[Rfam]
RNA sequence: ACUGUAGGGUCAAAGUGCUUACAGUGCAGGUAGUUCUGUGUAUUGUCUACUGCAGUGAAGGCACUUCAAGCUCUACAUU
Dot-bracket structure: ...((((.((..((((((((.((.(((.(((((.............)))))))).)).))))))))...)).))))...
The family of this 79-nucleotide RNA from Astyanax mexicanus is "mir-17 microRNA precursor family".
A reference for the family is Ambros (2001), "microRNAs: tiny regulators with great potential", Cell.
The family's consensus secondary structure was predicted with RNAalifold.
The family has 234 seed sequences and 4,687 matches in Rfam 15.1.
The organism belongs to Astyanax, within Eukaryota.
A search with the family's covariance model found it, with a score of 71 bits.
This family represents the microRNA (miRNA) precursor mir-17, family, which includes mir-20, mir-91, and mir-103. miRNAs are transcribed as ~70nt precursors (modelled here) and subsequently processed by the Dicer enzyme to give a ~22nt product. In this case the mature sequence comes from the 3' arm of the precursor. The extents of the hairpin precursors are not generally known and are estimated based on hairpin prediction.